[Rfam]
Shown here is a 305-nucleotide sequence from Solanum commersonii, a member of the family "Plant signal recognition particle RNA". The source organism's lineage runs through Eukaryota, Viridiplantae, Euphyllophyta, Solanaceae and Solanum. It is annotated as a non-coding RNA gene.

RNA sequence: GCCGAGCUAAGUAACUUAGGCUUGUAACCCAAGUGGGGGCAAUAAUGCGGUGGAAUAUUGGGCUAUUCCAGAAAGGUUGGGCCUGGUGGGCUUAUAUCUGGCCUGCCCUGUCCAAGUACAGAGUUGGGCCUUGUGGUCCAAUCGAAGGAAUGGGCUGCUGGGCUCUUAAAGUGGAGCAGACUGCGUGAGGCUGGUUUCACAGAGCAACGAAUAGUUUCUGCUCUGUGCAGUGGAAGGAUAACGGGCCGGUGCUGGCCAAACCCAACAAAAGCCUGAUGGGUUGCUUCGAUUAAACCACCAUUUUU
Numbered sequence: 001g002c003c004g005a006g007c008u009a010a011g012u013a014a015c016u017u018a019g020g021c022u023u024g025u026a027a028c029c030c031a032a033g034u035g036g037g038g039g040c041a042a043u044a045a046u047g048c049g050g051u052g053g054a055a056u057a058u059u060g061g062g063c064u065a066u067u068c069c070a071g072a073a074a075g076g077u078u079g080g081g082c083c084u085g086g087u088g089g090g091c092u093u094a095u096a097u098c099u100g101g102c103c104u105g106c107c108c109u110g111u112c113c114a115a116g117u118a119c120a121g122a123g124u125u126g127g128g129c130c131u132u133g134u135g136g137u138c139c140a141a142u143c144g145a146a147g148g149a150a151u152g153g154g155c156u157g158c159u160g161g162g163c164u165c166u167u168a169a170a171g172u173g174g175a176g177c178a179g180a181c182u183g184c185g186u187g188a189g190g191c192u193g194g195u196u197u198c199a200c201a202g203a204g205c206a207a208c209g210a211a212u213a214g215u216u217u218c219u220g221c222u223c224u225g226u227g228c229a230g231u232g233g234a235a236g237g238a239u240a241a242c243g244g245g246c247c248g249g250u251g252c253u254g255g256c257c258a259a260a261c262c263c264a265a266c267a268a269a270a271g272c273c274u275g276a277u278g279g280g281u282u283g284c285u286u287c288g289a290u291u292a293a294a295c296c297a298c299c300a301u302u303u304u305u
Stems, first nucleotide, its partner, number of pairs: 001040003004023005010017002028037003044304002047301001049299005056292002058289003061285003065281002068279003073274001075273004079263003084258003089253002092251001098249008107237002111234004116228009126165006133158008142149002166171001173218005182211001184209003191202003

Rfam 15.1 lists 4,988 matches to the family in 266 species. It scores 250 bits against the family's covariance model.